[Rfam]
RNA sequence: AUCGUCCAACGCGGGAGCCCGGUACGACCGGGCUGAGAGGGCGGCUGAGAUCAGGGCCGCCGACCGCCAGAACCUGCUCCGGGUCAUUCCGGCGAAGGGAGUUUGCGCGAUGACCGC
Number, nucleotide and partner (000 for none) at each position: 001a000002u000003c000004g000005u000006c105007c000008a103009a102010c101011g067012c066013g065014g064015g000016a000017g033018c032019c031020c030021g029022g000023u000024a000025c000026g000027a000028c000029c021030g020031g019032g018033c017034u000035g000036a000037g000038a000039g000040g061041g060042c059043g058044g057045c056046u055047g000048a000049g000050a000051u000052c000053a000054g000055g046056g045057c044058c043059g042060c041061c040062g000063a000064c014065c013066g012067c011068c000069a000070g000071a000072a000073c098074c097075u096076g000077c000078u000079c092080c091081g090082g089083g000084u000085c000086a000087u000088u000089c082090c081091g080092g079093c000094g000095a000096a075097g074098g073099g000100a000101g010102u009103u008104u000105g006106c000107g000108c000109g000110a000111u000112g000113a000114c000115c000116g000117c000